[Rfam]
RNA sequence: GGAUCAAUGAUGAUUCCGAGUCAAUCAUUCCUUGGAAAAGCUGAACAAAAUGAGUGACAACUCCCUACCGUCUCUCUCAUCGUAACUGAGGUCC
Numbered sequence: 001g002g003a004u005c006a007a008u009g010a011u012g013a014u015u016c017c018g019a020g021u022c023a024a025u026c027a028u029u030c031c032u033u034g035g036a037a038a039a040g041c042u043g044a045a046c047a048a049a050a051u052g053a054g055u056g057a058c059a060a061c062u063c064c065c066u067a068c069c070g071u072c073u074c075u076c077u078c079a080u081c082g083u084a085a086c087u088g089a090g091g092u093c094c
Stems, first nucleotide, its partner, number of pairs: 001094005026056005032048003
Small nucleolar RNA SNORD116: a 94-nucleotide sequence from Nannospalax galili. It scores 99 bits against the family's covariance model. On this family, see Cavaille et al., Proc Natl Acad Sci U S A 2000: "Identification of brain-specific and imprinted small nucleolar RNA genes exhibiting an unusual genomic organization". By type it is a C/D-box small nucleolar RNA.